RNA sequence: GGUGGCAAAUGAUGAGAAAUGUUAUAUGCUAAACACUGAAUCUUAGAUAUGUUUACAAAAAUCCGCUUAUUAUCUAAUGCCACC
Dot-bracket structure: ..(((((......................................................................)))))..